[Rfam]
Nucleotides: 373
Base pairs, nucleotide, nucleotide: 001369002368003367004366005365006364007363008362009361010360011358013323014322015321016320017319018318019317021039022038023037024036025035026034027033028032044356045355046354048353049352050351051350052349053228054227055226056225063278065224066223067222068221069220070084071083072082073081074080085099086097087096088095089094100219101218105217106216107213108212109211122158123157124154125153126152127151128150129149130148131147132146133145134144166184167183168182169181170180171179185208186206187205188204189203191200192199193198232304233303234302235301242295243294244293245292246291247290272288274286275285276284
Number, partner (000 for none) and nucleotide at each position: 001369u002368g003367g004366a005365g006364u007363a008362g009361g010360u011358g012000c013323g014322a015321c016320c017319g018318u019317c020000g021039c022038u023037c024036c025035g026034g027033c028032c029000a030000u031000c032028g033027g034026c035025c036024g037023g038022g039021g040000a041000g042000g043000a044356a045355a046354g047000u048353c049352c050351g051350g052349a053228c054227u055226c056225c057000a058000c059000a060000g061000g062000g063278c064000c065224g066223c067222a068221u069220g070084g071083u072082u073081c074080c075000g076000u077000a078000a079000a080074g081073g082072a083071a084070c085099c086097g087096g088095g089094g090000g091000c092000a093000a094089c095088c096087c097086c098000a099085g100219g101218g102000a103000a104000a105217g106216u107213g108212c109211c110000a111000c112000a113000g114000a115000g116000a117000a118000c119000a120000g121000a122158c123157c124154g125153c126152c127151g128150g129149a130148c131147u132146c133145c134144c135000c136000c137000u138000c139000a140000a141000a142000a143000u144134g145133g146132g147131g148130g149129u150128c151127c152126g153125g154124u155000a156000a157123g158122g159000g160000u161000g162000a163000a164000a165000c166184g167183g168182u169181g170180g171179g172000g173000u174000a175000a176000g177000a178000g179171c180170c181169c182168a183167c184166c185208g186206c187205u188204c189203g190000c191200c192199g193198g194000g195000u196000g197000a198193c199192c200191g201000g202000u203189c204188g205187a206186g207000g208185c209000a210000c211109g212108g213107c214000a215000a216106a217105c218101c219100c220069c221068a222067u223066g224065c225056g226055g227054a228053g229000c230000a231000a232304g233303g234302c235301c236000g237000a238000a239000u240000a241000g242295g243294g244293a245292c246291g247290c248000c249000c250000c251000g252000g253000a254000g255000g256000g257000u258000g259000g260000c261000c262000c263000g264000u265000c266000c267000g268000a269000a270000g271000a272288c273000c274286g275285c276284c277000u278063g279000c280000g281000g282000g283000c284276g285275g286274u287000c288272g289000g290247g291246c292245g293244u294243c295242c296000g297000g298000g299000u300000a301235g302234g303233c304232c305000g306000c307000u308000g309000a310000g311000a312000u313000g314000a315000a316000u317019g318018a319017c320016g321015g322014u323013c324000c325000g326000c327000g328000u329000c330000c331000g332000a333000c334000c335000g336000g337000g338000c339000g340000c341000g342000a343000a344000c345000a346000g347000a348000a349052u350051c351050c352049g353048g354046c355045u356044u357000a358011c359000g360010g361009c362008c363007u364006g365005c366004u367003c368002c369001a370000c371000g372000u373000c